[Rfam]
RNA sequence: AGAGGCCCUCCGAGGCCAGGGCGGAACGCUUGCCUCAUUGCCACGGCAACGAAGCAAGCAUUCUGCCAGGCCACUCACGCUGCCCGC
Numbered sequence: 001a002g003a004g005g006c007c008c009u010c011c012g013a014g015g016c017c018a019g020g021g022c023g024g025a026a027c028g029c030u031u032g033c034c035u036c037a038u039u040g041c042c043a044c045g046g047c048a049a050c051g052a053a054g055c056a057a058g059c060a061u062u063c064u065g066c067c068a069g070g071c072c073a074c075u076c077a078c079g080c081u082g083c084c085c086g087c
Stems, first nucleotide, its partner, number of pairs: 004084003012074001014072004020067007028059006038049004
The family of this 87-nucleotide RNA from Myotis brandtii is "mir-9195 microRNA precursor family". A search with the family's covariance model found it, with a score of 97 bits. The base pairs follow the family's consensus structure, which was predicted with RNAalifold. The organism belongs to Myotis, within Eukaryota.